[Rfam]
Source information:
Shown here is a 107-nucleotide RNA sequence from Caenorhabditis auriculariae, a member of the family "Nematode sRNA ceN72-3_ceN74-2". The family's RNA type in Rfam is small RNA. The base pairs follow the family's consensus structure, which was predicted with WAR. On this family, see Jia et al., BMC Mol Biol 2007: "Systematic identification of non-coding RNA 2,2,7-trimethylguanosine cap structures in Caenorhabditis elegans".
RNA sequence: AGAAGCGGUCCGAAGUCAGUGGGUUACCAAACUGAAAAAGUCGCAGCCGGCUUGCCGGUACUGUGCACCCCUCCUAACCCUAUCCAUUGGCACCACUUGACCGCUUU
Dot-bracket structure: .(((.(((((.(..(((((((((..............((((((....))))))....((.(...).))..............)))))))))..)....))))).)))
The family has 13 seed sequences and 521 matches in Rfam 15.1.